Annotation:
Rfam assigns this 32-nucleotide RNA to the family "XIST RNA A repeat". Rfam's curators put it in the seed alignment.

RNA sequence: UAGCCCAUCGGGGCCUCGGAUACCUGCUGUGU
Numbered sequence: 001u002a003g004c005c006c007a008u009c010g011g012g013g014c015c016u017c018g019g020a021u022a023c024c025u026g027c028u029g030u031g032u
Stems, first nucleotide, its partner, number of pairs: 003014004017026003